[Rfam]
RNA sequence: UUGCACAGAGAACACCCAGGGACGCUAGCAUGGCUCUCUCUGGUCUUACUUCUGUGCUACAGUGACUCUGUUCUGUACCUCUGCAUUAGGGGGGUCCUCUUCUCCCCUAUAUGUAUUCAGCAGAUCAGUACAAAC
Numbered sequence: 001u002u003g004c005a006c007a008g009a010g011a012a013c014a015c016c017c018a019g020g021g022a023c024g025c026u027a028g029c030a031u032g033g034c035u036c037u038c039u040c041u042g043g044u045c046u047u048a049c050u051u052c053u054g055u056g057c058u059a060c061a062g063u064g065a066c067u068c069u070g071u072u073c074u075g076u077a078c079c080u081c082u083g084c085a086u087u088a089g090g091g092g093g094g095u096c097c098u099c100u101u102c103u104c105c106c107c108u109a110u111a112u113g114u115a116u117u118c119a120g121c122a123g124a125u126c127a128g129u130a131c132a133a134a135c
Stems, first nucleotide, its partner, number of pairs: 003057006010051001014047001016043005022037001024034003059074001061072004081120003084113003088108007
The family of this 135-nucleotide sequence from Muraenolepis orangiensis is "Small nucleolar RNA SNORA22". The base pairs follow the family's consensus structure, which was predicted with RNAfold. Gene Ontology terms of the family: nucleolus and RNA processing. Taxonomically the source falls in Muraenolepis (Eukaryota, Teleostomi, Acanthomorphata, Gadiformes). The family's RNA type in Rfam is H/ACA-box small nucleolar RNA. Rfam describes the family as follows. ACA22 is a member of the H/ACA class of snoRNA that guide the sites of modification of uridines to pseudouridines.